[Rfam]
RNA: mir-34 microRNA precursor family
Organism: Muntiacus reevesi
RNA sequence: GGUUUGUAGGCAGUGUAAUUAGCUGAUUGUACUUUCGUGCUUACAAUCACUAGUUCCACUGCCAUCAAAAC
Numbered sequence: 001g002g003u004u005u006g007u008a009g010g011c012a013g014u015g016u017a018a019u020u021a022g023c024u025g026a027u028u029g030u031a032c033u034u035u036c037g038u039g040c041u042u043a044c045a046a047u048c049a050c051u052a053g054u055u056c057c058a059c060u061g062c063c064a065u066c067a068a069a070a071c
Stems, first nucleotide, its partner, number of pairs: 003069004009063002012060004017055006024049008